Shown here is a 110-nucleotide RNA from Mycobacterium talmoniae, a member of the family "SAM (S-adenosyl methionine) riboswitch aptamer". The literature on the family includes a 2008 paper in RNA by Weinberg et al., "The aptamer core of SAM-IV riboswitches mimics the ligand-binding site of SAM-I riboswitches". SAM-IV is a mRNA element that regulates gene expression via direct sensing of S-adenosylmethionine (SAM or AdoMet). SAM-IV riboswitches share conserved nucleotide positions with the previously described SAM-I riboswitches sequence analysis and molecular recognition experiments suggest that SAM-I and SAM-IV riboswitches share similar ligand binding sites, but have different scaffolds. A search with the family's covariance model found it, with a score of 60 bits.
RNA sequence: CUUCACGAGACGCCGUCGCCAAGCUCCGACUCGACGGCGCGCCAACCCAGCUCGGGGUGGCUCGGAUGACGAAGCGACCGGCACCGGACGGGCGCCGGUACGGGCGCGGC
Numbered sequence: 001c002u003u004c005a006c007g008a009g010a011c012g013c014c015g016u017c018g019c020c021a022a023g024c025u026c027c028g029a030c031u032c033g034a035c036g037g038c039g040c041g042c043c044a045a046c047c048c049a050g051c052u053c054g055g056g057g058u059g060g061c062u063c064g065g066a067u068g069a070c071g072a073a074g075c076g077a078c079c080g081g082c083a084c085c086g087g088a089c090g091g092g093c094g095c096c097g098g099u100a101c102g103g104g105c106g107c108g109g110c
Stems, first nucleotide, its partner, number of pairs: 001074004009040001012038006022031002041061003046057003077099006084092002